[Rfam]
RNA sequence: ACGCAUUCUCAAACCCUCCUGGUACUGUUGCUGUUAUAACUUCCAGGAUAAGGAUGGAUGCAAGAGAAAAAUGUAGAGUUAUCCAAAAUGCAGAACGUUCUCUCGUACUUCUGCAUUAUUUCACCUCUUCAAUAAAAAACU
Numbered sequence: 001a002c003g004c005a006u007u008c009u010c011a012a013a014c015c016c017u018c019c020u021g022g023u024a025c026u027g028u029u030g031c032u033g034u035u036a037u038a039a040c041u042u043c044c045a046g047g048a049u050a051a052g053g054a055u056g057g058a059u060g061c062a063a064g065a066g067a068a069a070a071a072u073g074u075a076g077a078g079u080u081a082u083c084c085a086a087a088a089u090g091c092a093g094a095a096c097g098u099u100c101u102c103u104c105g106u107a108c109u110u111c112u113g114c115a116u117u118a119u120u121u122c123a124c125c126u127c128u129u130c131a132a133u134a135a136a137a138a139a140c141u
Stems, first nucleotide, its partner, number of pairs: 003061004009053002017048006024041001026039001065141002072131002075128003087117007095109001100105001
Shown here is a 141-nucleotide RNA from Podarcis muralis, a member of the family "Small nucleolar RNA SNORA14". Taxonomically the source falls in Podarcis (Eukaryota, Amniota, Squamata, Unidentata). Gene Ontology terms of the family: RNA processing and nucleolus. Rfam classes the family as an H/ACA-box small nucleolar RNA. The match comes from Rfam's covariance-model search (94 bits). Rfam's curators write: ACA14 is a member of the H/ACA class of snoRNA that guide the sites of modification of uridines to pseudouridines.